[Rfam]
RNA sequence: AUCCACGGAUUGCCCAAAACAUUUUGUUACAUCGGGGUAAGCCUGGAGCGGAGGAACCAAGUUUGGGGCUAAUCUCAUAGGAGAGCGAAGAAUGAAAAAUGAAGAAUGAAUUAAGACAAAAAUUACUCCAGUUUUUUCUCCUGUCUUUUUUUUUCUUUCUUCUGUUCUGUGAGAGGGACAUCUCUCAGUCCUAGCCCGUCAGCUAACUUCGUCGGCAUUGAGAGGAGACUGA
Numbered sequence: 001a002u003c004c005a006c007g008g009a010u011u012g013c014c015c016a017a018a019a020c021a022u023u024u025u026g027u028u029a030c031a032u033c034g035g036g037g038u039a040a041g042c043c044u045g046g047a048g049c050g051g052a053g054g055a056a057c058c059a060a061g062u063u064u065g066g067g068g069c070u071a072a073u074c075u076c077a078u079a080g081g082a083g084a085g086c087g088a089a090g091a092a093u094g095a096a097a098a099a100u101g102a103a104g105a106a107u108g109a110a111u112u113a114a115g116a117c118a119a120a121a122a123u124u125a126c127u128c129c130a131g132u133u134u135u136u137u138c139u140c141c142u143g144u145c146u147u148u149u150u151u152u153u154u155c156u157u158u159c160u161u162c163u164g165u166u167c168u169g170u171g172a173g174a175g176g177g178a179c180a181u182c183u184c185u186c187a188g189u190c191c192u193a194g195c196c197c198g199u200c201a202g203c204u205a206a207c208u209u210c211g212u213c214g215g216c217a218u219u220g221a222g223a224g225g226a227g228a229c230u231g232a
Base pairs, nucleotide, nucleotide: 002047003046004045048212049211050210051209052208053207058065059064066197067196068195074173075172076171077170078169079168080167081166082165176191177190178189179188